[Rfam]
RNA: Streptomyces RNA 3920
Organism: Streptomyces globosus
RNA sequence: GAUAGGCCCCUGUCGCUACGGUGAUUGGACUCUGACGCACGGUCAACUAGCCUGGGACACGUGGUUCUUGCGUGGAACCCGGAGGCGGUCCGAGCCAGGAGGGGGGAGGCUCGGACCGCCUUCC
Numbered sequence: 001g002a003u004a005g006g007c008c009c010c011u012g013u014c015g016c017u018a019c020g021g022u023g024a025u026u027g028g029a030c031u032c033u034g035a036c037g038c039a040c041g042g043u044c045a046a047c048u049a050g051c052c053u054g055g056g057a058c059a060c061g062u063g064g065u066u067c068u069u070g071c072g073u074g075g076a077a078c079c080c081g082g083a084g085g086c087g088g089u090c091c092g093a094g095c096c097a098g099g100a101g102g103g104g105g106g107a108g109g110c111u112c113g114g115a116c117c118g119c120c121u122u123c124c
Stems, first nucleotide, its partner, number of pairs: 001014005015051004021032001023030001033045004058074007084120013
Dot-bracket structure: (((((....)))))((((..(.(......).)((((.....))))..))))......(((((((...))))))).........(((((((((((((...........)))))))))))))....